[Rfam]
RNA sequence: UGGUGCCCAAUGUGUGCGGGCCGGGUAUGAGGGCUUCGGUGAAGAACAUUGCAGAGAAGGGCCAGCCACAUCCAGAAAAGAGACAGAACAGAGGAAGUGGUUAGACUGGAGCCUGCCAGUACAACGAGACCUGAGUAAGUGAGUGACAAUUAUGGGACACGACAAUCAUGAGCCAACAUGAGCUAUUUGUUGAAGUCCUCAAAAAGGCACUUAAGCCGUGAGGGGUUAGACACCAGAAUUGUUGAAAUUUCUUAUAUUUAUUAAGGAAGUUUGUUCUU
Numbered sequence: 001u002g003g004u005g006c007c008c009a010a011u012g013u014g015u016g017c018g019g020g021c022c023g024g025g026u027a028u029g030a031g032g033g034c035u036u037c038g039g040u041g042a043a044g045a046a047c048a049u050u051g052c053a054g055a056g057a058a059g060g061g062c063c064a065g066c067c068a069c070a071u072c073c074a075g076a077a078a079a080g081a082g083a084c085a086g087a088a089c090a091g092a093g094g095a096a097g098u099g100g101u102u103a104g105a106c107u108g109g110a111g112c113c114u115g116c117c118a119g120u121a122c123a124a125c126g127a128g129a130c131c132u133g134a135g136u137a138a139g140u141g142a143g144u145g146a147c148a149a150u151u152a153u154g155g156g157a158c159a160c161g162a163c164a165a166u167c168a169u170g171a172g173c174c175a176a177c178a179u180g181a182g183c184u185a186u187u188u189g190u191u192g193a194a195g196u197c198c199u200c201a202a203a204a205a206g207g208c209a210c211u212u213a214a215g216c217c218g219u220g221a222g223g224g225g226u227u228a229g230a231c232a233c234c235a236g237a238a239u240u241g242u243u244g245a246a247a248u249u250u251c252u253u254a255u256a257u258u259u260a261u262u263a264a265g266g267a268a269g270u271u272u273g274u275u276c277u278u
Stems, first nucleotide, its partner, number of pairs: 006033003012028003037051004089133003094130001100125003105120005139160003144156001147154002170211001172208003219254008229240002263278005